This 362-nucleotide RNA sequence from Afipia sp. GAS231 belongs to the Rfam family "Alphaproteobacteria transfer-messenger RNA". Bacterial tmRNA, also known as 10Sa RNA or SsrA, is named for its dual tRNA and mRNA-like properties. The literature on the family includes a 1996 paper in RNA by Williams and Bartel, "Phylogenetic analysis of tmRNA secondary structure". It is annotated as a non-coding RNA gene. The family's consensus secondary structure is taken from published work. The organism belongs to Afipia, within Bacteria.

RNA sequence: GGCCUAUCUUUCGACAGCGAUCACGCCUACUAUCCGCGGGUCGCAAGACGAUGGCGCUGAACCUUAGAGUGGACUGCGGGCAGACCCGGGGGCAGUACCCGGCGCCUCCACCUUAGCAGCUUGAGCUUAAAGGUCUCAUCACGGUGAGAUCGAUUUGGCCGCAAGGCUAGAUUCCAAAGCUGCUAGGGCGGGGGCGAACCAGGAUCGAUGGUCGCAAUGAAGCUCUGAAUUGUGCUCGGCAUGAUACCGCCGUUAUCGGGUCAAAAACCUAAAUGCAAACGAUAACGUUGCAUUGAACGAAGUGCGCCUCGCGGCGUAACCUGUUCGGGGUUGGUCCACCUGGCAACAGAACGGCCAUCGCC
Numbered sequence: 001g002g003c004c005u006a007u008c009u010u011u012c013g014a015c016a017g018c019g020a021u022c023a024c025g026c027c028u029a030c031u032a033u034c035c036g037c038g039g040g041u042c043g044c045a046a047g048a049c050g051a052u053g054g055c056g057c058u059g060a061a062c063c064u065u066a067g068a069g070u071g072g073a074c075u076g077c078g079g080g081c082a083g084a085c086c087c088g089g090g091g092g093c094a095g096u097a098c099c100c101g102g103c104g105c106c107u108c109c110a111c112c113u114u115a116g117c118a119g120c121u122u123g124a125g126c127u128u129a130a131a132g133g134u135c136u137c138a139u140c141a142c143g144g145u146g147a148g149a150u151c152g153a154u155u156u157g158g159c160c161g162c163a164a165g166g167c168u169a170g171a172u173u174c175c176a177a178a179g180c181u182g183c184u185a186g187g188g189c190g191g192g193g194g195c196g197a198a199c200c201a202g203g204a205u206c207g208a209u210g211g212u213c214g215c216a217a218u219g220a221a222g223c224u225c226u227g228a229a230u231u232g233u234g235c236u237c238g239g240c241a242u243g244a245u246a247c248c249g250c251c252g253u254u255a256u257c258g259g260g261u262c263a264a265a266a267a268c269c270u271a272a273a274u275g276c277a278a279a280c281g282a283u284a285a286c287g288u289u290g291c292a293u294u295g296a297a298c299g300a301a302g303u304g305c306g307c308c309u310c311g312c313g314g315c316g317u318a319a320c321c322u323g324u325u326c327g328g329g330g331u332u333g334g335u336c337c338a339c340c341u342g343g344c345a346a347c348a349g350a351a352c353g354g355c356c357a358u359c360g361c362c
Base pairs, nucleotide, nucleotide: 040049041048042047053236054235055234056233057232064228065227066226067225068224069223076215077214078213081210082209086102087101088100089099090098103196104195105194106193107192108191109190237252238251239250240249242263243262244261247259248258328341329340330339331338334356336354